This 83-nucleotide sequence from Polypedilum vanderplanki belongs to the Rfam family "mir-14 microRNA precursor family". Taxonomically the source falls in Polypedilum (Eukaryota, Ecdysozoa, Panorpida, Chironomini).
RNA sequence: UGUGGGAGCGAGAUUGAGGCUAGACUGUUGGAUGCUUUUUUGCCAUUUCACUGUCUCAAGUCAGUCUUUUUCUCUCUCCUAUC
Numbered sequence: 001u002g003u004g005g006g007a008g009c010g011a012g013a014u015u016g017a018g019g020c021u022a023g024a025c026u027g028u029u030g031g032a033u034g035c036u037u038u039u040u041u042g043c044c045a046u047u048u049c050a051c052u053g054u055c056u057c058a059a060g061u062c063a064g065u066c067u068u069u070u071u072c073u074c075u076c077u078c079c080u081a082u083c
Stems, first nucleotide, its partner, number of pairs: 002082007010074004016068006024061003
The literature on the family includes a 2009 paper in BMC Genomics by Li et al., "Direct sequencing and expression analysis of a large number of miRNAs in Aedes aegypti and a multi-species survey of novel mosquito miRNAs".
Pairs were carried over by alignment from the consensus structure, which was predicted with RNAalifold.